[Rfam]
RNA: Histone 3' UTR stem-loop
RNA sequence: CCAACGGCCCUUUUAAGGGCCACCAUAUUUUCCUAAGAACAAUGAG
Dot-bracket structure: .....((((((....)))))).........................